RNA: c-di-GMP-I riboswitch aptamer
Organism: Sulfurovum sp. AR
RNA sequence: AUAAUAUAAGGCUAAACUCAUUGUGAAGUGAGGGCAGAAAGUUAUGGGUCUCAAUGCAGAUCGCCAAACUGCCAAA
Numbered sequence: 001a002u003a004a005u006a007u008a009a010g011g012c013u014a015a016a017c018u019c020a021u022u023g024u025g026a027a028g029u030g031a032g033g034g035c036a037g038a039a040a041g042u043u044a045u046g047g048g049u050c051u052c053a054a055u056g057c058a059g060a061u062c063g064c065c066a067a068a069c070u071g072c073c074a075a076a
Stems, first nucleotide, its partner, number of pairs: 012037002017032006040070004045066003048061003